[Rfam]
RNA sequence: GUUGAGGGGAAUGUUGGCUGGCUCGAAGCUUAAGCAAAGAGUAUCCUAACAUGAAACAACUGUUAAGGCUUCGGACCAGGCUUCAUUCCCCUCAAA
Numbered sequence: 001g002u003u004g005a006g007g008g009g010a011a012u013g014u015u016g017g018c019u020g021g022c023u024c025g026a027a028g029c030u031u032a033a034g035c036a037a038a039g040a041g042u043a044u045c046c047u048a049a050c051a052u053g054a055a056a057c058a059a060c061u062g063u064u065a066a067g068g069c070u071u072c073g074g075a076c077c078a079g080g081c082u083u084c085a086u087u088c089c090c091c092u093c094a095a096a
Base pairs, nucleotide, nucleotide: 002095003094004093005092006091007090008089009088010087011086012085013084016081018079019078020077021076024073025072026071
The family of this 96-nucleotide sequence from Populus deltoides is "mir-166 microRNA precursor family". From the family's description: This family represents the plant microRNA (miRNA) precursor mir-166. Taxonomically the source falls in Populus (Eukaryota, Gunneridae, fabids, Salicaceae).